[Rfam]
Nucleotides: 061
Stems, first nucleotide, its partner, number of pairs: 001061001004058002014048010028036003
Number, partner (000 for none) and nucleotide at each position: 001061u002000u003000g004058u005057g006000u007000u008000u009000a010000u011000g012000a013000c014048a015047g016046c017045a018044a019043u020042c021041a022040c023039a024000g025000a026000a027000a028036g029035c030034u031000u032000u033000u034030g035029g036028c037000a038000u039023u040022g041021u042020g043019a044018u045017u046016g047015c048014u049000u050000g051000a052000u053000g054000c055000u056000a057005c058004a059000g060000c061001a